[Rfam]
RNA sequence: UACUCAUCAAGAGUUGGUGGAGGGACUGGCCCGAUGAAACCGCGGCAACCAUUUAAUACGGCAGGUAUUAAAACGGUGCUAAUUCCGGCGGCAAAGCCGCAAGAUGGGAG
Numbered sequence: 001u002a003c004u005c006a007u008c009a010a011g012a013g014u015u016g017g018u019g020g021a022g023g024g025a026c027u028g029g030c031c032c033g034a035u036g037a038a039a040c041c042g043c044g045g046c047a048a049c050c051a052u053u054u055a056a057u058a059c060g061g062c063a064g065g066u067a068u069u070a071a072a073a074c075g076g077u078g079c080u081a082a083u084u085c086c087g088g089c090g091g092c093a094a095a096g097c098c099g100c101a102a103g104a105u106g107g108g109a110g
Stems, first nucleotide, its partner, number of pairs: 001110001003108006013043001015042004022032003026088004044080004049076002052072007084102001089099004
The family of this 110-nucleotide sequence from Sporomusa acidovorans is "SAM riboswitch aptamer (S box leader)". A search with the family's covariance model found it, with a score of 77 bits. Rfam links the family to the GO term regulation of gene expression.